[Rfam]
RNA sequence: UAGCGAUUAACUUAACGACGCACACAUUCCGAUAGCGUUAUCAGGGUGCCGCGAGAGUGGUUUGGUAGCGAGGUUUGUGGAGGCUUAAC
Numbered sequence: 001u002a003g004c005g006a007u008u009a010a011c012u013u014a015a016c017g018a019c020g021c022a023c024a025c026a027u028u029c030c031g032a033u034a035g036c037g038u039u040a041u042c043a044g045g046g047u048g049c050c051g052c053g054a055g056a057g058u059g060g061u062u063u064g065g066u067a068g069c070g071a072g073g074u075u076u077g078u079g080g081a082g083g084c085u086u087a088a089c
Stems, first nucleotide, its partner, number of pairs: 023079004029073002036070008048061005